small nucleolar RNA snoR21: a 146-nucleotide RNA from Plasmodium yoelii.
On this family, see Chakrabarti et al., RNA 2007: "Structural RNAs of known and unknown function identified in malaria parasites by comparative genomics and RNA analysis".
It is one of the family's seed sequences.
[Rfam]
RNA sequence: UUUUUAAUGAUGAAACGAUGACGAGUAUGAAAAAGUGAAAAUUGUUUAUUAUUAUUUUUAAAUACAUGUUUUAUGUAGUUAUUAAUAUUUAAUAAAUGUAUUUUUCAUUUUUAUUGCAUGAUUAUUUGAGGCAUUUGGCUGAAAAA
Numbered sequence: 001u002u003u004u005u006a007a008u009g010a011u012g013a014a015a016c017g018a019u020g021a022c023g024a025g026u027a028u029g030a031a032a033a034a035g036u037g038a039a040a041a042u043u044g045u046u047u048a049u050u051a052u053u054a055u056u057u058u059u060a061a062a063u064a065c066a067u068g069u070u071u072u073a074u075g076u077a078g079u080u081a082u083u084a085a086u087a088u089u090u091a092a093u094a095a096a097u098g099u100a101u102u103u104u105u106c107a108u109u110u111u112u113a114u115u116g117c118a119u120g121a122u123u124a125u126u127u128g129a130g131g132c133a134u135u136u137g138g139c140u141g142a143a144a145a146a
Stems, first nucleotide, its partner, number of pairs: 017135004031112009040080003